[Rfam]
RNA sequence: UUUUCUUUGCAGGUUGGGAUGAGUAGCAAUGCUGUUUUCUGGUAAGGUAUUGCACUUGUCCCGGCCUGUGAAGGUCUG
Numbered sequence: 001u002u003u004u005c006u007u008u009g010c011a012g013g014u015u016g017g018g019a020u021g022a023g024u025a026g027c028a029a030u031g032c033u034g035u036u037u038u039c040u041g042g043u044a045a046g047g048u049a050u051u052g053c054a055c056u057u058g059u060c061c062c063g064g065c066c067u068g069u070g071a072a073g074g075u076c077u078g
Base pairs, nucleotide, nucleotide: 004074005073006072009069010068011067012066013065014064016062017061018060019059020058022056023055024054026053027052028051029050030049031048032047033046
RNA: mir-92 microRNA precursor family
Organism: Megalops atlanticus